RNA sequence: CGCAAAAGCAUCAUUGAGUGCAGCGUUGAUGACAACUUCAUUCCCAUCCCUCUUUGUUCAUUGUCUCUACCCAUUGUGUGUUUAUUUAUGCAGGGUGGCCAGUUUCACCAGCACUGCACUCAAUCCUGUUUUUC
Dot-bracket structure: .....(((((..(((((((((((.((((.(((........................................................................))).)))).)))))))))))..)))))...
The record is a 134-nucleotide RNA sequence from Protea cynaroides, which matches "MIR397 microRNA precursor family" in Rfam. For this family Rfam cites "High throughput approaches reveal splicing of primary microRNA transcripts and tissue specific expression of mature microRNAs in Vitis vinifera" (Mica et al., BMC Genomics, 2009). A search with the family's covariance model found it, with a score of 68 bits. The base pairs follow the family's consensus structure, which was predicted with WAR. The organism belongs to Protea, within Eukaryota.